[Rfam]
RNA sequence: AUAAACCUUCGGGGCAGGGUGAAAGUCCCUACCGGCGGUAAGGCAUCCUCAGUAUGCCAAGCCCGUGACCCGAGUUGCACAUAUACUAUUGUAUGUGUGUACGUCGCAGCGUUUGCUGCGCCGGUGGAUCUGGUGAGAGUCCAGAGCCGACGGUUAUAGUCCGGAUGGGAGAAGGUUCAG
Numbered sequence: 001a002u003a004a005a006c007c008u009u010c011g012g013g014g015c016a017g018g019g020u021g022a023a024a025g026u027c028c029c030u031a032c033c034g035g036c037g038g039u040a041a042g043g044c045a046u047c048c049u050c051a052g053u054a055u056g057c058c059a060a061g062c063c064c065g066u067g068a069c070c071c072g073a074g075u076u077g078c079a080c081a082u083a084u085a086c087u088a089u090u091g092u093a094u095g096u097g098u099g100u101a102c103g104u105c106g107c108a109g110c111g112u113u114u115g116c117u118g119c120g121c122c123g124g125u126g127g128a129u130c131u132g133g134u135g136a137g138a139g140u141c142c143a144g145a146g147c148c149g150a151c152g153g154u155u156a157u158a159g160u161c162c163g164g165a166u167g168g169g170a171g172a173a174g175g176u177u178c179a180g
Base pairs, nucleotide, nucleotide: 004177005176006175007174008173009172010171017029018028019027031160032159033149034148035066036065037064038063061147062146070124071123129145130144131143132142133141151163152162153161
Dot-bracket structure: ...(((((((......(((.......))).[[((((((......................[[))))...((...................................................))....(((((.......)))))]])).(((.....]]))).......)))))))...
This 180-nucleotide sequence from Phototrophicus methaneseepsis belongs to the Rfam family "FMN riboswitch aptamer (RFN element)". Rfam describes the family as follows. The RFN element is a highly conserved domain that is found frequently in the 5'-untranslated regions of prokaryotic mRNAs that encode for flavin mononucleotide (FMN) biosynthesis and transport proteins. This element is a metabolite-dependent riboswitch that directly binds FMN in the absence of proteins. In Bacillus subtilis, the riboswitch most likely controls gene expression by causing premature transcription termination within the 5' untranslated region of the ribDEAHT operon and precluding access to the ribosome-binding site of ypaA mRNA.The FMN riboswitch structure, reported in present an FMN-bound six-stem junction, adopts a butterfly-like scaffold, stapled together by opposingly directed but nearly identically folded peripheral domains. It scores 109 bits against the family's covariance model. The base pairs follow the family's consensus structure, which is taken from published work.